[Rfam]
RNA sequence: UAGUAGGUGAAAGUCCAACCUGAGUAAGUGCCAAGACACUCAGUAGCUGACAGGCGACCGGUGAAGAAAUUCUAAGGUUGAAGCCCUGUGACAAAGUAACUCUAUCAAGAGUGCGAGCAACCUAACAGGUUGUAACAUUA
Numbered sequence: 001u002a003g004u005a006g007g008u009g010a011a012a013g014u015c016c017a018a019c020c021u022g023a024g025u026a027a028g029u030g031c032c033a034a035g036a037c038a039c040u041c042a043g044u045a046g047c048u049g050a051c052a053g054g055c056g057a058c059c060g061g062u063g064a065a066g067a068a069a070u071u072c073u074a075a076g077g078u079u080g081a082a083g084c085c086c087u088g089u090g091a092c093a094a095a096g097u098a099a100c101u102c103u104a105u106c107a108a109g110a111g112u113g114c115g116a117g118c119a120a121c122c123u124a125a126c127a128g129g130u131u132g133u134a135a136c137a138u139u140a
Base pairs, nucleotide, nucleotide: 020043021042022041023040024039050089051088052087053086054085055080056079057078058077059076064071065070096114097113099112100111101110102109117133118132119131
Group II catalytic intron D1-D4-4: a 140-nucleotide RNA from Oceanobacillus indicireducens. The match comes from Rfam's covariance-model search (107 bits). Rfam's curators write: Group II introns are found in rRNA, tRNA and mRNA of organelles in fungi, plants and protists, and also in mRNA in bacteria. A reference for the family is Chu et al. (2001), "Control of branch-site choice by a group II intron", EMBO J. Taxonomically the source falls in Oceanobacillus (Bacteria, Bacillati, Caryophanales, Bacillaceae).